The record is a 61-nucleotide RNA sequence from Chiloscyllium punctatum, which matches "U7 small nuclear RNA" in Rfam.
Taxonomically the source falls in Chiloscyllium (Eukaryota, Metazoa, Gnathostomata, Galeomorphii).
About the family: Animal histone pre-mRNAs are spliced by a different mechanism than nuclear pre-mRNAs and self-splicing introns. This processing involves the U7 snRNP, which contains only one RNA species: U7. The 5' end of U7 RNA is thought to base-pair to a conserved spacer element downstream of the cleavage site in histone pre-mRNA. This family contains a number of annotated U7 pseudogenes.
A search with the family's covariance model found it, with a score of 39 bits.

RNA sequence: CUGAUUUAUAUCCCCUUUGGUAUUUGUCUAGCAGGUUCCUGCUGAUGCAGUGGGAGCCCCA
Numbered sequence: 001c002u003g004a005u006u007u008a009u010a011u012c013c014c015c016u017u018u019g020g021u022a023u024u025u026g027u028c029u030a031g032c033a034g035g036u037u038c039c040u041g042c043u044g045a046u047g048c049a050g051u052g053g054g055a056g057c058c059c060c061a
Stems, first nucleotide, its partner, number of pairs: 034058011
Dot-bracket structure: .................................(((((((((((...)))))))))))...